[Rfam]
RNA sequence: AUCCUCUUUCUCAGGGAGAUCAGGUGUAUUGUCCCUGUCCCUGUAAUGGACAGGGUGCCAGCCCCCUUCGGGUCAUGUCUUUGGUGCUGGUGGCUUCCAGUCUGCAGGUUCUAUCCUCAAGCUUGGGGACACAG
Dot-bracket structure: (((((......((((((.(...((........)).).))))))........)))))...........((((((.............((.((((........)))).))............))))))........
RNA: Small nucleolar RNA SNORA57